[Rfam]
RNA sequence: UAUCGGCGGGAGAAAUUGACUCGACUUUGUAACGUCAGUCAGUCUUUUUCUCUCUCCUAUA
Numbered sequence: 001u002a003u004c005g006g007c008g009g010g011a012g013a014a015a016u017u018g019a020c021u022c023g024a025c026u027u028u029g030u031a032a033c034g035u036c037a038g039u040c041a042g043u044c045u046u047u048u049u050c051u052c053u054c055u056c057c058u059a060u061a
Base pairs, nucleotide, nucleotide: 001061002060003059005057006056008054010052011051012050013049015047018044019043020042021041024039025038026037